[Rfam]
RNA sequence: UGAGUUUAAGGCUGCAGCAGAAGCACUCAUGGCAUGACCCUGUCAGAUUCCAACAAAUCUGCAAAUUCUGCU
Numbered sequence: 001u002g003a004g005u006u007u008a009a010g011g012c013u014g015c016a017g018c019a020g021a022a023g024c025a026c027u028c029a030u031g032g033c034a035u036g037a038c039c040c041u042g043u044c045a046g047a048u049u050c051c052a053a054c055a056a057a058u059c060u061g062c063a064a065a066u067u068c069u070g071c072u
Base pairs, nucleotide, nucleotide: 010040011039012036013034016072017071018070019069020068021067022066023033024032044061045060046059047058048057049056